A member of the RNA family "MIR828 microRNA precursor family" from Brassica napus, 103 nucleotides long.
The family has 16 seed sequences and 204 matches in Rfam 15.1.
Gene Ontology terms of the family: miRNA-mediated post-transcriptional gene silencing and RISC complex.
Lineage of the source: Eukaryota > Euphyllophyta > Mesangiospermae > Pentapetalae > Brassica.
It scores 79 bits against the family's covariance model.
The base pairs follow the family's consensus structure, which was predicted with RNAalifold.
[Rfam]
RNA sequence: CCAAUGUUUCUUGCUUAAAUGAGUAUUCCAUGAAAGUGAUUCUGACUCACGCAUGAGCUGGUCUCUCUCUUCAUGAGAUGCUCAUUUGAGCAAGCAACGUUUG
Numbered sequence: 001c002c003a004a005u006g007u008u009u010c011u012u013g014c015u016u017a018a019a020u021g022a023g024u025a026u027u028c029c030a031u032g033a034a035a036g037u038g039a040u041u042c043u044g045a046c047u048c049a050c051g052c053a054u055g056a057g058c059u060g061g062u063c064u065c066u067c068u069c070u071u072c073a074u075g076a077g078a079u080g081c082u083c084a085u086u087u088g089a090g091c092a093a094g095c096a097a098c099g100u101u102u103g
Stems, first nucleotide, its partner, number of pairs: 004100005010094018029075002
Dot-bracket structure: ...(((((.((((((((((((((((((.((...........................................)).)))))))))))))))))).)))))...